[Rfam]
RNA sequence: UUUCAUGUGGAAAUUUCUCCUAUUCCUUUAUGAGCUGGAAUGUAUUCAUAACAUGCUACAUCUUAAAAGGAGUUCUCGGAGCUGCCAGUCAUAACGUGGAGGUUGAGUAGUAGCCUACUCUUUCUCCUACCUAA
Dot-bracket structure: ...(((((.......((..((...........))..))............))))).............((((........((..((((((.(......).))))).)..))............)))).......
Numbered sequence: 001u002u003u004c005a006u007g008u009g010g011a012a013a014u015u016u017c018u019c020c021u022a023u024u025c026c027u028u029u030a031u032g033a034g035c036u037g038g039a040a041u042g043u044a045u046u047c048a049u050a051a052c053a054u055g056c057u058a059c060a061u062c063u064u065a066a067a068a069g070g071a072g073u074u075c076u077c078g079g080a081g082c083u084g085c086c087a088g089u090c091a092u093a094a095c096g097u098g099g100a101g102g103u104u105g106a107g108u109a110g111u112a113g114c115c116u117a118c119u120c121u122u123u124c125u126c127c128u129a130c131c132u133a134a
Stems, first nucleotide, its partner, number of pairs: 004055005016038002020034002069127004081111002085107001086105005092099001
Small nucleolar RNA U109: a 134-nucleotide sequence from Callorhinus ursinus. Pairs were carried over by alignment from the consensus structure, which was predicted with WAR. Taxonomically the source falls in Callorhinus (Eukaryota, Metazoa, Mammalia, Carnivora). Rfam 15.1 lists 1,405 matches to the family in 622 species. A reference for the family is Richard et al. (2003), "A common sequence motif determines the Cajal body-specific localization of box H/ACA scaRNAs", EMBO J.